The family of this 61-nucleotide RNA from Lactuca sativa is "Plastid-psbA-2 3UTR RNA".
Plastid psbA-2 is a non-coding RNA (ncRNA) present in plastids. It was identified in inverted repeat sequences in the 3 prime untranslate region (3UTR) of photosystem II quinone-binding protein (psbA).
The family's RNA type in Rfam is cis-regulatory element.
The family's consensus secondary structure was predicted with LocARNA.
The match comes from Rfam's covariance-model search (64 bits).
RNA sequence: UAAAAGGAGCAAUAACUUCCCUCUUGUUUUAUCAAAAGGGCGUUAUUGCUCCUUUUUUUAA
Numbered sequence: 001u002a003a004a005a006g007g008a009g010c011a012a013u014a015a016c017u018u019c020c021c022u023c024u025u026g027u028u029u030u031a032u033c034a035a036a037a038g039g040g041c042g043u044u045a046u047u048g049c050u051c052c053u054u055u056u057u058u059u060a061a
Stems, first nucleotide, its partner, number of pairs: 002056015017040003022037001024035003